[Rfam]
RNA sequence: CCACUCGACAACAACGAGCUGGUCAGCAACAUCCUCACCGGCCUUGACUAUGACUACAACUCGGUGGUCUCGGCCGUCCUUGCACGAACUGAGCCCAUCACGGUGAGCGAGCUGUAUACACAACUUCUUUCUUUUGAUC
Dot-bracket structure: ....((((....................................................................................((.(((....))).)).........................))))..
RNA: Small nucleolar RNA Z247